RNA sequence: UGGAGGAACAACCCCAGUGGUGGCGGCCAGCUCUGGAGCCCUGGAGUCAGCUCCCCCAGUAACUAUGGAGCUUUCAGCCUGCAGAGGCCUAUAUGCUCCGGGGGCGG
Numbered sequence: 001u002g003g004a005g006g007a008a009c010a011a012c013c014c015c016a017g018u019g020g021u022g023g024c025g026g027c028c029a030g031c032u033c034u035g036g037a038g039c040c041c042u043g044g045a046g047u048c049a050g051c052u053c054c055c056c057c058a059g060u061a062a063c064u065a066u067g068g069a070g071c072u073u074u075c076a077g078c079c080u081g082c083a084g085a086g087g088c089c090u091a092u093a094u095g096c097u098c099c100g101g102g103g104g105c106g107g
Stems, first nucleotide, its partner, number of pairs: 002099004007094001010090001012087002014084001019079003023075001025074002029072007037064001041059003

This 107-nucleotide sequence from Vulpes vulpes belongs to the Rfam family "mir-8834 microRNA precursor family". Gene Ontology terms of the family: miRNA-mediated post-transcriptional gene silencing and RISC complex. The source organism's lineage runs through Eukaryota, Teleostomi, Tetrapoda, Canidae and Vulpes.